A member of the RNA family "U5 spliceosomal RNA" from Ameiurus melas, 118 nucleotides long. Taxonomically the source falls in Ameiurus (Eukaryota, Eumetazoa, Chordata, Euteleostomi). From the family's description: U5 RNA is a component of both types of known spliceosome. The precise function of this molecule is unknown, though it is known that the 5' loop is required for splice site selection and p220 binding, and that both the 3' stem-loop and the Sm site are important for Sm protein binding and cap methylation. Pairs were carried over by alignment from the consensus structure, which is taken from published work.
RNA sequence: AGCUCGGGUUUCUUUUCAUUCACGCAUAAAUCUUUCGCCUUUUACUAAAGAAUUUCCGUGGAGAGGAACGGCUGAUCGAGUACGGCGUUUUUUUUGCAAGCUUUGCUUUAGCAAAGCU
Number, nucleotide and partner (000 for none) at each position: 001a000002g000003c080004u079005c078006g077007g000008g069009u068010u067011u066012c065013u064014u063015u062016u061017c060018a059019u000020u000021c000022a000023c000024g000025c000026a000027u000028a055029a054030a053031u051032c050033u049034u048035u047036c000037g000038c000039c000040u000041u000042u000043u000044a000045c000046u000047a035048a034049a033050g032051a031052a000053u030054u029055u028056c000057c000058g000059u018060g017061g016062a015063g014064a013065g012066g011067a010068a009069c008070g000071g000072c000073u000074g000075a000076u000077c006078g005079a004080g003081u000082a000083c000084g000085g000086c000087g000088u000089u000090u000091u000092u000093u000094u000095u000096g000097c000098a118099a000100g117101c116102u115103u114104u113105g112106c000107u000108u000109u000110a000111g000112c105113a104114a103115a102116g101117c100118u098